[Rfam]
RNA sequence: UCUAAUCUUCGGGGCAGGGUGUAAUUCCCGACCGGCGGUAAAUAGUGUAAUAACUUGAAGUCCGCGACCCAAUUUGUUAAUGCAUUUUGGCUGAUCUGGUGAAACUCCAGAACCGACAGUUAAAGUCUGGAUGAGAGAAGAUGUCG
Numbered sequence: 001u002c003u004a005a006u007c008u009u010c011g012g013g014g015c016a017g018g019g020u021g022u023a024a025u026u027c028c029c030g031a032c033c034g035g036c037g038g039u040a041a042a043u044a045g046u047g048u049a050a051u052a053a054c055u056u057g058a059a060g061u062c063c064g065c066g067a068c069c070c071a072a073u074u075u076g077u078u079a080a081u082g083c084a085u086u087u088u089g090g091c092u093g094a095u096c097u098g099g100u101g102a103a104a105c106u107c108c109a110g111a112a113c114c115g116a117c118a119g120u121u122a123a124a125g126u127c128u129g130g131a132u133g134a135g136a137g138a139a140g141a142u143g144u145c146g
Base pairs, nucleotide, nucleotide: 005142006141007140008139009138010137017029018028019027031126032125033115034114035065036064037063038062060113061112069090070089095111096110097109098108099107117129118128119127

FMN riboswitch aptamer (RFN element): a 146-nucleotide sequence from Oceanobacillus bengalensis.
The base pairs follow the family's consensus structure, which is taken from published work.
The source organism's lineage runs through Bacteria, Bacilli, Caryophanales, Bacillaceae and Oceanobacillus.